Guanidine-I riboswitch aptamer: a 133-nucleotide RNA sequence from Paenibacillus beijingensis. The source organism's lineage runs through Bacteria, Bacillota, Caryophanales, Paenibacillaceae and Paenibacillus. The family has 100 seed sequences and 1,509 matches in Rfam 15.1. The match comes from Rfam's covariance-model search (68 bits).
RNA sequence: ACGACAACUAUCUAGGGUUCCGCUCGGCUUCCGUUCAUAUGGUUUCUGAGGACUGGUCCAAGAGAUAGGCUACGGCAGAUGGCGCGGUAACCGCAGCUGCUGUAUGACACGGAAGGACAAAAGCCUGGGAGAU
Numbered sequence: 001a002c003g004a005c006a007a008c009u010a011u012c013u014a015g016g017g018u019u020c021c022g023c024u025c026g027g028c029u030u031c032c033g034u035u036c037a038u039a040u041g042g043u044u045u046c047u048g049a050g051g052a053c054u055g056g057u058c059c060a061a062g063a064g065a066u067a068g069g070c071u072a073c074g075g076c077a078g079a080u081g082g083c084g085c086g087g088u089a090a091c092c093g094c095a096g097c098u099g100c101u102g103u104a105u106g107a108c109a110c111g112g113a114a115g116g117a118c119a120a121a122a123g124c125c126u127g128g129g130a131g132a133u
Stems, first nucleotide, its partner, number of pairs: 008068005015059002020056002022053001023050005070106001071104007108128001110131001114126003
The literature on the family includes a 2017 paper in RNA by Battaglia et al., "Structural basis for guanidine sensing by the ykkC family of riboswitches".